[Rfam]
RNA sequence: GAUAGGACGCUGUCGCCUGCGUGAUUGGACACUGACACAGGGUCAACUAGCCUUGGUCAAGCGGUUCUUCGCAUGCGGAACCGGCGACGGUCCGAGCCACGAGGGGGGAGGCUCGGACCGUCCUGC
Numbered sequence: 001g002a003u004a005g006g007a008c009g010c011u012g013u014c015g016c017c018u019g020c021g022u023g024a025u026u027g028g029a030c031a032c033u034g035a036c037a038c039a040g041g042g043u044c045a046a047c048u049a050g051c052c053u054u055g056g057u058c059a060a061g062c063g064g065u066u067c068u069u070c071g072c073a074u075g076c077g078g079a080a081c082c083g084g085c086g087a088c089g090g091u092c093c094g095a096g097c098c099a100c101g102a103g104g105g106g107g108g109a110g111g112c113u114c115g116g117a118c119c120g121u122c123c124u125g126c
Base pairs, nucleotide, nucleotide: 001014002013003012004011005010015051016050021032022031023030033045034044035043036042058075059074061072062071063070064069076083077082086122087121088120089119090118091117092116093115094114095113096112097111098110100107

The record is a 126-nucleotide RNA sequence from Streptomyces pluripotens, which matches "Streptomyces RNA 3920" in Rfam. It is annotated as a small RNA. A reference for the family is Vockenhuber et al. (2011), "Deep sequencing-based identification of small non-coding RNAs in Streptomyces coelicolor", RNA Biol. The base pairs follow the family's consensus structure. NCBI's taxonomy places the organism under Bacteria, Bacillati, Actinomycetes, Kitasatosporales, Streptomyces. Identified by deep sequencing of transcriptome at the end of exponential growth phase.